[Rfam]
The family of this 84-nucleotide RNA from Microbacterium marinum is "ZMP/ZTP riboswitch aptamer (pfl RNA motif)". The match comes from Rfam's covariance-model search (51 bits). Rfam links the family to the GO terms one-carbon metabolic process and regulation of purine nucleotide biosynthetic process. The family's consensus secondary structure is taken from published work. Taxonomically the source falls in Microbacterium (Bacteria, Bacillati, Micrococcales, Microbacteriaceae).

RNA sequence: UCGCAGUGUCGCGACUGGCGUUGAGGUGGGUCACCACCGGGGAGCGAUUGACACGGCAUUCGACCGCGCGCCUGGGCCGAUGCG
Numbered sequence: 001u002c003g004c005a006g007u008g009u010c011g012c013g014a015c016u017g018g019c020g021u022u023g024a025g026g027u028g029g030g031u032c033a034c035c036a037c038c039g040g041g042g043a044g045c046g047a048u049u050g051a052c053a054c055g056g057c058a059u060u061c062g063a064c065c066g067c068g069c070g071c072c073u074g075g076g077c078c079g080a081u082g083c084g
Base pairs, nucleotide, nucleotide: 008048009047010046011045012044015041016040017072018071019070020069021068026037027036028035029034061079062078064076065075